[Rfam]
RNA sequence: AAUUUCGGGUAAUUGCAGUCUAGCUUAACUAGAUUGAGGAAAGUCCAUGCUCGCACAAGCUGCGACGCUUGUAGUGUUCGUGCUUAGCGAAACAAUAAGCUAAGGCCUUUAUCUUUAGAUAAAGUGACGGCAGAAAAAAAGUCUAAGGUUUUUUAAAACUAUGACUGAGUAUUCUUGAAAGUGCCACAGUGACGAAGCAAUGUUGGAAACGGCAUUGGUGGAACGCGGUAAACCCCUCGAGCGAGCAACCCAAACUUUGGUAGGGGCACUUUUCCUAGGGAAUUGAACCGAUGGAAGAGGCAGUAAUUGCAGACAGAUAAUUACCUCCGGAUAAUAUGACCCUGACAGGUUAUCUGAGACAGAACAUGGCUUACAGAA
Numbered sequence: 001a002a003u004u005u006c007g008g009g010u011a012a013u014u015g016c017a018g019u020c021u022a023g024c025u026u027a028a029c030u031a032g033a034u035u036g037a038g039g040a041a042a043g044u045c046c047a048u049g050c051u052c053g054c055a056c057a058a059g060c061u062g063c064g065a066c067g068c069u070u071g072u073a074g075u076g077u078u079c080g081u082g083c084u085u086a087g088c089g090a091a092a093c094a095a096u097a098a099g100c101u102a103a104g105g106c107c108u109u110u111a112u113c114u115u116u117a118g119a120u121a122a123a124g125u126g127a128c129g130g131c132a133g134a135a136a137a138a139a140a141g142u143c144u145a146a147g148g149u150u151u152u153u154u155a156a157a158a159c160u161a162u163g164a165c166u167g168a169g170u171a172u173u174c175u176u177g178a179a180a181g182u183g184c185c186a187c188a189g190u191g192a193c194g195a196a197g198c199a200a201u202g203u204u205g206g207a208a209a210c211g212g213c214a215u216u217g218g219u220g221g222a223a224c225g226c227g228g229u230a231a232a233c234c235c236c237u238c239g240a241g242c243g244a245g246c247a248a249c250c251c252a253a254a255c256u257u258u259g260g261u262a263g264g265g266g267c268a269c270u271u272u273u274c275c276u277a278g279g280g281a282a283u284u285g286a287a288c289c290g291a292u293g294g295a296a297g298a299g300g301c302a303g304u305a306a307u308u309g310c311a312g313a314c315a316g317a318u319a320a321u322u323a324c325c326u327c328c329g330g331a332u333a334a335u336a337u338g339a340c341c342c343u344g345a346c347a348g349g350u351u352a353u354c355u356g357a358g359a360c361a362g363a364a365c366a367u368g369g370c371u372u373a374c375a376g377a378a
Base pairs, nucleotide, nucleotide: 004378005377006376007374008325009324010323011322012321013320014319016036017035018034019033020032021031041372042371043370045369046368047367048366049365050245051244052243053242054241055072056071057070058069059068060067078240079239080238082236083104084103085102086101087100088099105128106126107124108123109122110121111120112119113118129235130234132175133174134173135172140166141165142164143163147160148159149158150157151156181233182232183229184228185227198217199216200215201214202213203212204211205210249265250264251263269299270298271297272296273295274294275293300310301309302308303307328356329355330354331353332352333351334350335349
The family of this 378-nucleotide RNA sequence from Carnobacterium iners is "Bacterial RNase P class B". On this family, see Frank and Pace, Annu Rev Biochem 1998: "Ribonuclease P: unity and diversity in a tRNA processing ribozyme". By type it is a ribozyme.